[Rfam]
RNA sequence: AACGUGACCCAUAAAAGUAGUAGUCCCCCAACCCGGGGCGACUUUCCCAUAUUCUGAAUUC
Numbered sequence: 001a002a003c004g005u006g007a008c009c010c011a012u013a014a015a016a017g018u019a020g021u022a023g024u025c026c027c028c029c030a031a032c033c034c035g036g037g038g039c040g041a042c043u044u045u046c047c048c049a050u051a052u053u054c055u056g057a058a059u060u061c
Stems, first nucleotide, its partner, number of pairs: 017045001019043003023039005
The record is a 61-nucleotide RNA from Hordeum vulgare, which matches "Plastid-psbN 5UTR RNA" in Rfam. About the family: Plastid psbN is a non-coding RNA (ncRNA) recognised in plastids. It was reported as a conserved 11 stem-loop in the prime untranslated region (5UTR) of psbN genes.